[Rfam]
A member of the RNA family "Small nucleolar RNA SNORD115" from Carlito syrichta, 81 nucleotides long. Rfam 15.1 lists 3,387 matches to the family in 131 species. Taxonomically the source falls in Carlito (Eukaryota, Craniata, Theria, Euarchontoglires).
RNA sequence: GGGUCAAUGAUGAGUACUUUAUAUUGCCUUAUGGGUUAGUGAUGACUUGAAUAUCACAUACAAGGCACGACACUGAGGCCC
Numbered sequence: 001g002g003g004u005c006a007a008u009g010a011u012g013a014g015u016a017c018u019u020u021a022u023a024u025u026g027c028c029u030u031a032u033g034g035g036u037u038a039g040u041g042a043u044g045a046c047u048u049g050a051a052u053a054u055c056a057c058a059u060a061c062a063a064g065g066c067a068c069g070a071c072a073c074u075g076a077g078g079c080c081c
Base pairs, nucleotide, nucleotide: 001081002080003079004078005075006074008072009071